[Rfam]
RNA sequence: UAGACGAAAGGGCAAAUCAAGCGAAAGCUUUUGACGCAAAGUUACCGAUCUAAGGGUUAACUGAGAAAGUUAAGUAAACCUAUGAUGGCAGGACCACCGAA
Numbered sequence: 001u002a003g004a005c006g007a008a009a010g011g012g013c014a015a016a017u018c019a020a021g022c023g024a025a026a027g028c029u030u031u032u033g034a035c036g037c038a039a040a041g042u043u044a045c046c047g048a049u050c051u052a053a054g055g056g057u058u059a060a061c062u063g064a065g066a067a068a069g070u071u072a073a074g075u076a077a078a079c080c081u082a083u084g085a086u087g088g089c090a091g092g093a094c095c096a097c098c099g100a101a
Stems, first nucleotide, its partner, number of pairs: 012037002019030004041094003045091001047089001048086003055080004
RNA: c-di-GMP-I riboswitch aptamer